[Rfam]
RNA sequence: GGGCUCCAGCACCUUGGCUUUAGACUGCUUACUGCUUUAAACAGUCUCACAGUCACAGUAACAGUCUACAGUCAUGGCUACUGGCGCCUG
Number, nucleotide and partner (000 for none) at each position: 001g000002g000003g000004c000005u000006c000007c000008a000009g000010c000011a000012c077013c076014u000015u074016g073017g072018c071019u000020u000021u000022a000023g066024a065025c064026u063027g062028c000029u061030u060031a059032c058033u057034g000035c000036u000037u000038u000039a000040a000041a000042c000043a000044g000045u000046c000047u000048c000049a000050c000051a000052g000053u000054c000055a000056c000057a033058g032059u031060a030061a029062c027063a026064g025065u024066c023067u000068a000069c000070a000071g018072u017073c016074a015075u000076g013077g012078c000079u000080a000081c000082u000083g000084g000085c000086g000087c000088c000089u000090g000
The record is a 90-nucleotide RNA sequence from Esox lucius, which matches "mir-132 microRNA precursor family" in Rfam. On this family, see Chen et al., Genes Dev 2005: "The developmental miRNA profiles of zebrafish as determined by small RNA cloning". Pairs were carried over by alignment from the consensus structure, which was predicted with RNAalifold.